RNA sequence: ACGACCUUACUUGAACAGGAUCUGUUCUAUAGGCUCGUACCUCUGUAUCCUUGAGAUCAAAGGAGACAGGAACCUAAGUCUGGUGAAUGAACCAUGACCGUGAGAUCAGAGCGUGAUUAACGGCAUGAUGAGUUCCUCUUUGGAGGGGCGUCAUCUAUUUCUGUAGAGGAUCGUUCUUGGACAGUGACUGUCUGAGAUGGUCUCACGGUUGUCUGACAGACC
Numbered sequence: 001a002c003g004a005c006c007u008u009a010c011u012u013g014a015a016c017a018g019g020a021u022c023u024g025u026u027c028u029a030u031a032g033g034c035u036c037g038u039a040c041c042u043c044u045g046u047a048u049c050c051u052u053g054a055g056a057u058c059a060a061a062g063g064a065g066a067c068a069g070g071a072a073c074c075u076a077a078g079u080c081u082g083g084u085g086a087a088u089g090a091a092c093c094a095u096g097a098c099c100g101u102g103a104g105a106u107c108a109g110a111g112c113g114u115g116a117u118u119a120a121c122g123g124c125a126u127g128a129u130g131a132g133u134u135c136c137u138c139u140u141u142g143g144a145g146g147g148g149c150g151u152c153a154u155c156u157a158u159u160u161c162u163g164u165a166g167a168g169g170a171u172c173g174u175u176c177u178u179g180g181a182c183a184g185u186g187a188c189u190g191u192c193u194g195a196g197a198u199g200g201u202c203u204c205a206c207g208g209u210u211g212u213c214u215g216a217c218a219g220a221c222c
Stems, first nucleotide, its partner, number of pairs: 001038002003035001005033003013027006043069004048064005078221005097209012110175004120164004125159001127155005134147005177195008
Shown here is a 222-nucleotide RNA from Cajanus cajan, a member of the family "Plant small nucleolar RNA U3". It is annotated as a C/D-box small nucleolar RNA. Its Rfam clan is "U3 clan". Its family is annotated with nucleolus and RNA processing in the Gene Ontology. The family's consensus secondary structure is taken from published work. Rfam describes the family as follows. Small nucleolar RNAs (snoRNAs) are involved in the processing and modification of rRNA in the nucleolus. The match comes from Rfam's covariance-model search (184 bits).